[Rfam]
RNA: PreQ1 (pre queuosine) riboswitch aptamer
RNA sequence: AUGGGAGAGGUUCUAGAAUACCCUCUAUAAAAAACUAAGGAAAA
Numbered sequence: 001a002u003g004g005g006a007g008a009g010g011u012u013c014u015a016g017a018a019u020a021c022c023c024u025c026u027a028u029a030a031a032a033a034a035c036u037a038a039g040g041a042a043a044a
Stems, first nucleotide, its partner, number of pairs: 006026005016036001